[Rfam]
RNA sequence: AAAGGAGAAAUAAUUAUUUUCUUGUUCUAUCAAGAGGAUACUAUUGCUCCUUUCUUU
Numbered sequence: 001a002a003a004g005g006a007g008a009a010a011u012a013a014u015u016a017u018u019u020u021c022u023u024g025u026u027c028u029a030u031c032a033a034g035a036g037g038a039u040a041c042u043a044u045u046g047c048u049c050c051u052u053u054c055u056u057u
Stems, first nucleotide, its partner, number of pairs: 001053007009045004014040001019036006
This 57-nucleotide RNA from Nicotiana attenuata belongs to the Rfam family "Plastid-psbA-3 3UTR RNA". NCBI's taxonomy places the organism under Eukaryota, Embryophyta, Tracheophyta, Nicotianoideae, Nicotiana. Plastid psbA-3 is a non-coding RNA (ncRNA) present in plastids. It was identified in inverted repeat sequences in the 3 prime untranslate region (3UTR) of photosystem II quinone-binding protein (psbA). For this family Rfam cites "Retrograde signaling in plants: A critical review focusing on the GUN pathway and beyond" (Richter et al., Plant Commun, 2023).